[Rfam]
RNA sequence: UGACCGGUAGCUCAGUCGGCAGAGCGGCUGUCUUACAAACAGCGGGUCGCAGGUUCGAAUCCUGUCCGGUCAA
Numbered sequence: 001u002g003a004c005c006g007g008u009a010g011c012u013c014a015g016u017c018g019g020c021a022g023a024g025c026g027g028c029u030g031u032c033u034u035a036c037a038a039a040c041a042g043c044g045g046g047u048c049g050c051a052g053g054u055u056c057g058a059a060u061c062c063u064g065u066c067c068g069g070u071c072a073a
Stems, first nucleotide, its partner, number of pairs: 001072007010025004027043005049065005

tRNA: a 73-nucleotide sequence from Actinomadura rubrisoli.
Pairs were carried over by alignment from the consensus structure, which is taken from published work.
It is annotated as a transfer RNA.
The organism belongs to Actinomadura, within Bacteria.